[Rfam]
RNA: c-di-GMP-I riboswitch aptamer
RNA sequence: AAACGAUAAAGGCAAACUUAUUGAAAGAUAGGGACGCAAAGCCAUGGAUCUAAGGUUACUAAACUAUGAUCGCCUGGUUGCCAAA
Numbered sequence: 001a002a003a004c005g006a007u008a009a010a011g012g013c014a015a016a017c018u019u020a021u022u023g024a025a026a027g028a029u030a031g032g033g034a035c036g037c038a039a040a041g042c043c044a045u046g047g048a049u050c051u052a053a054g055g056u057u058a059c060u061a062a063a064c065u066a067u068g069a070u071c072g073c074c075u076g077g078u079u080g081c082c083a084a085a
Stems, first nucleotide, its partner, number of pairs: 012037002017032006040079004046074002048070003055064003